[Rfam]
RNA sequence: CCUCGAAAAUGGCACACUUAUCGAAAGAUAAGGUCGCAAAGCUAUGAGUCUAAGGUACAAUAAUCAUUGUACUAAGAUCGUCAAGUUACCGAA
Numbered sequence: 001c002c003u004c005g006a007a008a009a010u011g012g013c014a015c016a017c018u019u020a021u022c023g024a025a026a027g028a029u030a031a032g033g034u035c036g037c038a039a040a041g042c043u044a045u046g047a048g049u050c051u052a053a054g055g056u057a058c059a060a061u062a063a064u065c066a067u068u069g070u071a072c073u074a075a076g077a078u079c080g081u082c083a084a085g086u087u088a089c090c091g092a093a
Base pairs, nucleotide, nucleotide: 012037013036017032018031019030020029021028022027040087041086042085043084045083046082047081048078049077050076055072056071057070058069059068060067061066
The family of this 93-nucleotide sequence from Halobacteroides halobius is "c-di-GMP-I riboswitch aptamer".
The organism belongs to Halobacteroides halobius, within Bacteria.